The family of this 59-nucleotide RNA from Thermosinus carboxydivorans is "Selenocysteine insertion sequence 3". Lineage of the source: Bacteria > Bacillota > Selenomonadales > Thermosinus > Thermosinus carboxydivorans. The match comes from Rfam's covariance-model search (67 bits). The family's RNA type in Rfam is cis-regulatory element. On this family, see Huttenhofer et al., RNA 1996: "Solution structure of mRNA hairpins promoting selenocysteine incorporation in Escherichia coli and their base-specific interaction with special elongation factor SELB".
RNA sequence: AUCUGACACUCCUCAACGGUGGCCAGUCUGGCCCCAUCUUUCGGACGUGGCGCCAUGAC
Numbered sequence: 001a002u003c004u005g006a007c008a009c010u011c012c013u014c015a016a017c018g019g020u021g022g023c024c025a026g027u028c029u030g031g032c033c034c035c036a037u038c039u040u041u042c043g044g045a046c047g048u049g050g051c052g053c054c055a056u057g058a059c
Base pairs, nucleotide, nucleotide: 007049008048009047012044013043016041018035019034021033022032023031024030025029